[Rfam]
RNA sequence: GAAGAAGGCUGGAUGAUCGCCGGUUUGCCACCUUCGGGCAAGGCAAACGGGAGGAAAGUCCGGGCUCCGUAGGACGGGAUGGUUCCUAACGGGAACCGGGGGUGACCCCAGGGAAAGUGCCACAGAGAGAAGACCGCCUGCAGUUUUUGCUGCAGGUAAGGGUGAAAGGGUGAGGUAAGAGCUCACCAGUUCCGGCGGUGACGUCGGAAGCUCGGUAAACCCCAUCCGGAGCAAGGCCGAAUAGGGAAACGUUUGAGGGCGGUCCGUCCGAAGUUUCCGGGUAUGGCUGCUUGAGGCUGUCGGCAACGGCAGCCCUAGAGGAAUGAUCAUCACUUUGCGGCGGGUAACCGGCGCAGGGGACAGAACCCGGCUUAUGGCCUUCUUUGGCC
Numbered sequence: 001g002a003a004g005a006a007g008g009c010u011g012g013a014u015g016a017u018c019g020c021c022g023g024u025u026u027g028c029c030a031c032c033u034u035c036g037g038g039c040a041a042g043g044c045a046a047a048c049g050g051g052a053g054g055a056a057a058g059u060c061c062g063g064g065c066u067c068c069g070u071a072g073g074a075c076g077g078g079a080u081g082g083u084u085c086c087u088a089a090c091g092g093g094a095a096c097c098g099g100g101g102g103u104g105a106c107c108c109c110a111g112g113g114a115a116a117g118u119g120c121c122a123c124a125g126a127g128a129g130a131a132g133a134c135c136g137c138c139u140g141c142a143g144u145u146u147u148u149g150c151u152g153c154a155g156g157u158a159a160g161g162g163u164g165a166a167a168g169g170g171u172g173a174g175g176u177a178a179g180a181g182c183u184c185a186c187c188a189g190u191u192c193c194g195g196c197g198g199u200g201a202c203g204u205c206g207g208a209a210g211c212u213c214g215g216u217a218a219a220c221c222c223c224a225u226c227c228g229g230a231g232c233a234a235g236g237c238c239g240a241a242u243a244g245g246g247a248a249a250c251g252u253u254u255g256a257g258g259g260c261g262g263u264c265c266g267u268c269c270g271a272a273g274u275u276u277c278c279g280g281g282u283a284u285g286g287c288u289g290c291u292u293g294a295g296g297c298u299g300u301c302g303g304c305a306a307c308g309g310c311a312g313c314c315c316u317a318g319a320g321g322a323a324u325g326a327u328c329a330u331c332a333c334u335u336u337g338c339g340g341c342g343g344g345u346a347a348c349c350g351g352c353g354c355a356g357g358g359g360a361c362a363g364a365a366c367c368c369g370g371c372u373u374a375u376g377g378c379c380u381u382c383u384u385u386g387g388c389c
Base pairs, nucleotide, nucleotide: 001385002384003383004382005381006380007379008378009377010376011375012331013330014329015328016327017326018325020051021050023048024047025046026045027044028043056373057372058371060370061369062368063367064366065231066230067229068228072265073264074263075262077227078226079225080224081223082096083095084094085093086092097111098109099108100107101106112222113221117220118219119216120215121214134161135160136157137156138155139154140153141152142151143150144149169187170186171185172184173183174182189211190209191208192207193206194205195204196203197202235288236287237286238285245278246277247276248275249274250273257269258268259267260266295314296313297312298311299310300309301308302307
RNA: Bacterial RNase P class A
Organism: Malonomonas rubra